Background: TPP riboswitch aptamer (THI element): a 99-nucleotide RNA sequence from Shewanella pealeana.

RNA sequence: CUCAUCUUGUCGGAGUGCCAUAUGGCUGAGACCGUUAAUUCGGGAUCCGUUGAACCUGAUCAGGCUAGAACCUGCGAAGGAAACAAGCGAAACUACUGC
Number, nucleotide and partner (000 for none) at each position: 001c000002u000003c000004a000005u000006c087007u086008u085009g084010u083011c049012g048013g047014a046015g000016u043017g026018c025019c024020a000021u000022a000023u000024g019025g018026c017027u000028g000029a000030g000031a000032c000033c042034g041035u000036u000037a000038a000039u000040u000041c034042g033043g016044g000045a000046u014047c013048c012049g011050u000051u000052g000053a000054a000055c080056c079057u078058g000059a000060u000061c074062a073063g072064g071065c000066u000067a000068g000069a000070a000071c064072c063073u062074g061075c000076g000077a000078a057079g056080g055081a000082a000083a010084c009085a008086a007087g006088c000089g000090a000091a000092a000093c000094u000095a000096c000097u000098g000099c000
The family's consensus secondary structure is taken from published work. A search with the family's covariance model found it, with a score of 70 bits.